[Rfam]
Notes
FMN riboswitch aptamer (RFN element): a 118-nucleotide sequence from Anoxynatronum buryatiense. Lineage of the source: Bacteria > Bacillati > Eubacteriales > Clostridiaceae > Anoxynatronum.
Nucleotides: 118
Stems, first nucleotide, its partner, number of pairs: 005114006017029003031098002033088002035048004043086002051064003068084005090101003
Number, partner (000 for none) and nucleotide at each position: 001000a002000c003000a004000a005114g006113u007112c008111u009110u010109c011000a012000g013000g014000g015000c016000a017029g018028g019027g020000u021000g022000a023000a024000a025000u026000u027019c028018c029017c030000g031098a032097c033088c034087g035048g036047c037046g038045g039000u040000a041000a042000a043086g044085u045038c046037c047036g048035c049000g050000a051064g052063u053062c054000g055000c056000u057000g058000u059000g060000g061000c062053g063052a064051u065000u066000g067000a068084a069083c070082c071081g072080g073000u074000g075000u076000a077000a078000u079000u080072c081071c082070g083069g084068u085044a086043c087034c088033g089000a090101c091100a092099g093000u094000a095000u096000a097032g098031u099092c100091u101090g102000g103000a104000u105000g106000g107000g108000a109010g110009a111008a112007g113006a114005u115000g116000a117000a118000c